A member of the RNA family "Acido-Lenti-1 RNA" from Posidoniimonas polymericola, 45 nucleotides long. Pairs were carried over by alignment from the consensus structure, which is taken from published work. Lineage of the source: Bacteria > Pseudomonadati > Planctomycetota > Lacipirellulaceae > Posidoniimonas. The match comes from Rfam's covariance-model search (40 bits).
RNA sequence: CCCAGGGCGAUGCCCUGGGCUGCGGUAGCGCGCCCCUUCGGGGCU
Numbered sequence: 001c002c003c004a005g006g007g008c009g010a011u012g013c014c015c016u017g018g019g020c021u022g023c024g025g026u027a028g029c030g031c032g033c034c035c036c037u038u039c040g041g042g043g044c045u
Stems, first nucleotide, its partner, number of pairs: 001019008032044005